Description: The family of this 31-nucleotide sequence from Callorhinus ursinus is "Iron response element II". Lineage of the source: Eukaryota > Opisthokonta > Tetrapoda > Caniformia > Callorhinus. The family has 30 seed sequences and 5,197 matches in Rfam 15.1. IRE, TFRC, SLC40A1, SDHB, SLC11A2, CDC42BPA, ACO2, ALAS2_H.SAPIENS, CDC14A, EPAS1, ALAS2, qoxD, Hao1, NDUFS1, transferrin, Aconitate. It is annotated as a cis-regulatory element.

[Rfam]
RNA sequence: UAAAUAUCGGAGUCAGUGUAGUCCAUAUUUC
Number, nucleotide and partner (000 for none) at each position: 001u000002a030003a029004a028005u027006a026007u025008c000009g024010g023011a022012g000013u020014c018015a000016g000017u000018g014019u000020a013021g000022u011023c010024c009025a007026u006027a005028u004029u003030u002031c000